The family of this 84-nucleotide RNA sequence from Apium graveolens is "small nucleolar RNA snoR117". Rfam links the family to the GO terms RNA processing and nucleolus. A reference for the family is Chen and Wu (2009), "Mining small RNA sequencing data: a new approach to identify small nucleolar RNAs in Arabidopsis", Nucleic Acids Res. It scores 59 bits against the family's covariance model. Taxonomically the source falls in Apium (Eukaryota, Viridiplantae, Streptophyta, Apioideae).
RNA sequence: AGUCAAUGAUGUAUGAUGAUUGUCCGUACCAUCUGAAGAUUAAUUUCUGUUGAUGUGUAAUCGCAUCCUUUUAAUCUGAGGCUU
Numbered sequence: 001a002g003u004c005a006a007u008g009a010u011g012u013a014u015g016a017u018g019a020u021u022g023u024c025c026g027u028a029c030c031a032u033c034u035g036a037a038g039a040u041u042a043a044u045u046u047c048u049g050u051u052g053a054u055g056u057g058u059a060a061u062c063g064c065a066u067c068c069u070u071u072u073a074a075u076c077u078g079a080g081g082c083u084u
Stems, first nucleotide, its partner, number of pairs: 001083004
The family's RNA type in Rfam is C/D-box small nucleolar RNA.